Shown here is a 74-nucleotide sequence from Astyanax mexicanus, a member of the family "Small nucleolar RNA SNORD47". On this family, see Kiss-Laszlo et al., Cell 1996: "Site-specific ribose methylation of preribosomal RNA: a novel function for small nucleolar RNAs". Pairs were carried over by alignment from the consensus structure, which was predicted with ILM. NCBI's taxonomy places the organism under Eukaryota, Vertebrata, Euteleostomi, Actinopterygii, Astyanax. It is annotated as a C/D-box small nucleolar RNA. Rfam 15.1 lists 755 matches to the family in 638 species.
RNA sequence: AACCUGUGAUGAAAAGAUUCUGCCAAAUGAAUCUACUGAUUAUACACCUUACCGUUCCACUUAUAUCUGAGGUU
Numbered sequence: 001a002a003c004c005u006g007u008g009a010u011g012a013a014a015a016g017a018u019u020c021u022g023c024c025a026a027a028u029g030a031a032u033c034u035a036c037u038g039a040u041u042a043u044a045c046a047c048c049u050u051a052c053c054g055u056u057c058c059a060c061u062u063a064u065a066u067c068u069g070a071g072g073u074u
Stems, first nucleotide, its partner, number of pairs: 001074004